This 109-nucleotide RNA sequence belongs to the Rfam family "c-di-GMP-II-GAG riboswitch aptamer".
RNA sequence: CAGCCAACGGGACGCAACGACCCCUGGAUCAGCAAACGGUCGCCAUCGCAUGACCUCACGGUCAUGACGAGGCCCAGGGCGAGCGAGAGGCGAGACCGACCCGGGGUUG
Numbered sequence: 001c002a003g004c005c006a007a008c009g010g011g012a013c014g015c016a017a018c019g020a021c022c023c024c025u026g027g028a029u030c031a032g033c034a035a036a037c038g039g040u041c042g043c044c045a046u047c048g049c050a051u052g053a054c055c056u057c058a059c060g061g062u063c064a065u066g067a068c069g070a071g072g073c074c075c076a077g078g079g080c081g082a083g084c085g086a087g088a089g090g091c092g093a094g095a096c097c098g099a100c101c102c103g104g105g106g107u108u109g
Base pairs, nucleotide, nucleotide: 001109002108003107004106005105008103009102010101011100013085014084015083022079023078024077025076026075027074029072038097039096040093041092042091043090044089